About this RNA
A member of the RNA family "Bacterial RNase P class A" from Rickettsia canadensis, 394 nucleotides long.
RNA sequence: CUAAAUGGUCAUGCAGUUGCGUGAUGAUAUAGCAAAGCUAUAGAUCACGAGGAAAGUCCGGACUCUAUAGAGGUAUGGUGCCGGCUAAUCUCCGGCAGAGUAUUAUUACUUUAGGGAAAGUACCACAGAAAAUAUACCGCCGCAAUAUUUCGGUAAGGGUGAAAAGGUACGGUAAGAGCGUACCGGUAAGUUGGUAACAAAUUACGCAUGGUAAACCCCACCAAGAGCAAGAUCAAAUAGGCAUUACAGAACUUGUGUUUCCAAGUUCCCGGGUUAUCUCUAACCGGCUUGUAAUGUGGGUAGAUCGCUUGAGGUAAACGGUAACGUUUAUCCUAGAUAAAUAACUGCAAUGAAUUUCUAUUCAUACAGAAUCCGGCUUAUAGACCUUAAAAAU
Numbered sequence: 001c002u003a004a005a006u007g008g009u010c011a012u013g014c015a016g017u018u019g020c021g022u023g024a025u026g027a028u029a030u031a032g033c034a035a036a037g038c039u040a041u042a043g044a045u046c047a048c049g050a051g052g053a054a055a056g057u058c059c060g061g062a063c064u065c066u067a068u069a070g071a072g073g074u075a076u077g078g079u080g081c082c083g084g085c086u087a088a089u090c091u092c093c094g095g096c097a098g099a100g101u102a103u104u105a106u107u108a109c110u111u112u113a114g115g116g117a118a119a120g121u122a123c124c125a126c127a128g129a130a131a132a133u134a135u136a137c138c139g140c141c142g143c144a145a146u147a148u149u150u151c152g153g154u155a156a157g158g159g160u161g162a163a164a165a166g167g168u169a170c171g172g173u174a175a176g177a178g179c180g181u182a183c184c185g186g187u188a189a190g191u192u193g194g195u196a197a198c199a200a201a202u203u204a205c206g207c208a209u210g211g212u213a214a215a216c217c218c219c220a221c222c223a224a225g226a227g228c229a230a231g232a233u234c235a236a237a238u239a240g241g242c243a244u245u246a247c248a249g250a251a252c253u254u255g256u257g258u259u260u261c262c263a264a265g266u267u268c269c270c271g272g273g274u275u276a277u278c279u280c281u282a283a284c285c286g287g288c289u290u291g292u293a294a295u296g297u298g299g300g301u302a303g304a305u306c307g308c309u310u311g312a313g314g315u316a317a318a319c320g321g322u323a324a325c326g327u328u329u330a331u332c333c334u335a336g337a338u339a340a341a342u343a344a345c346u347g348c349a350a351u352g353a354a355u356u357u358c359u360a361u362u363c364a365u366a367c368a369g370a371a372u373c374c375g376g377c378u379u380a381u382a383g384a385c386c387u388u389a390a391a392a393a394u
Stems, first nucleotide, its partner, number of pairs: 002389003007386004011381001012349007020049006054379003058376005063227004072284001074282001076223005081095004096114001097112006115218002120216002122212003137158002139154004144149001166184006185207001186205004191200003231306004241297006276290001279287002313332008
The source organism's lineage runs through Bacteria, Pseudomonadati, Alphaproteobacteria, Rickettsiaceae and Rickettsia canadensis. Ribonuclease P (RNase P) is a ubiquitous endoribonuclease, found in archaea, bacteria and eukarya as well as chloroplasts and mitochondria. Rfam classes the family as a ribozyme.